[Rfam]
RNA sequence: CGGGCGGGCCGGGCCCCUCUGACGUUUCGUGAACGUGAUGUCGGACCGCAUCG
Numbered sequence: 001c002g003g004g005c006g007g008g009c010c011g012g013g014c015c016c017c018u019c020u021g022a023c024g025u026u027u028c029g030u031g032a033a034c035g036u037g038a039u040g041u042c043g044g045a046c047c048g049c050a051u052c053g
Base pairs, nucleotide, nucleotide: 006047007046009044010043011042012041022036023035024034025033026032
terC RNA: a 53-nucleotide RNA from Paenirhodobacter populi.